[Rfam]
RNA sequence: UUCGGCAAUAGAGGCGCGAAGGCUAAGAGUAGCUGUCCUGAGACAACGGGGUCUGGGACGGGCAGGGAAAGGAGCAUUCGCCGAAACGGGGCAGUUCCCGAAAAACUGUCUGCGUUGGGGUACAGUCGAACAGGCUGUGCACUCUCACCGUACUGGUGGAGGAGCUAUUGCUUCA
Numbered sequence: 001u002u003c004g005g006c007a008a009u010a011g012a013g014g015c016g017c018g019a020a021g022g023c024u025a026a027g028a029g030u031a032g033c034u035g036u037c038c039u040g041a042g043a044c045a046a047c048g049g050g051g052u053c054u055g056g057g058a059c060g061g062g063c064a065g066g067g068a069a070a071g072g073a074g075c076a077u078u079c080g081c082c083g084a085a086a087c088g089g090g091g092c093a094g095u096u097c098c099c100g101a102a103a104a105a106c107u108g109u110c111u112g113c114g115u116u117g118g119g120g121u122a123c124a125g126u127c128g129a130a131c132a133g134g135c136u137g138u139g140c141a142c143u144c145u146c147a148c149c150g151u152a153c154u155g156g157u158g159g160a161g162g163a164g165c166u167a168u169u170g171c172u173u174c175a
Stems, first nucleotide, its partner, number of pairs: 006170006016081005022075003033065006085116004089111008117143002120140008145159005

Rfam assigns this 175-nucleotide sequence from Blautia sp. CAG:37 to the family "Lysine riboswitch aptamer". Rfam 15.1 lists 3,224 matches to the family in 1,923 species.